[Rfam]
RNA sequence: AGGAGGAACAACCCCAGUGGCGGUGGCCAGGUCUCCAGCCCUAGAGUCAGCUCCCACAGUAACUAUCAGAGCUCUUCGUCUGCAGGGCCUGGAUGCUCCCGGGUGGG
Numbered sequence: 001a002g003g004a005g006g007a008a009c010a011a012c013c014c015c016a017g018u019g020g021c022g023g024u025g026g027c028c029a030g031g032u033c034u035c036c037a038g039c040c041c042u043a044g045a046g047u048c049a050g051c052u053c054c055c056a057c058a059g060u061a062a063c064u065a066u067c068a069g070a071g072c073u074c075u076u077c078g079u080c081u082g083c084a085g086g087g088c089c090u091g092g093a094u095g096c097u098c099c100c101g102g103g104u105g106g107g
Stems, first nucleotide, its partner, number of pairs: 002099004007094001009091002012087003019080005025075002029073002032070003037064001041059002

mir-8834 microRNA precursor family: a 107-nucleotide sequence from Vulpes vulpes. The family's consensus secondary structure was predicted with RNAalifold.